This 79-nucleotide RNA sequence from Anolis carolinensis belongs to the Rfam family "mir-5429 microRNA precursor family". Taxonomically the source falls in Anolis (Eukaryota, Bilateria, Euteleostomi, Squamata).

[Rfam]
RNA sequence: CUAGGAAUCUCUAGAUCCCCCAGUGUGAUUCUAUGGUCAAUUUUUCUAUAGUCAUGCUGGAGGACCUCGAGAUUUCUAG
Dot-bracket structure: (((((((((((.((..((.(((((((((((.((.((........)))).))))))))))).))..)).)))))))))))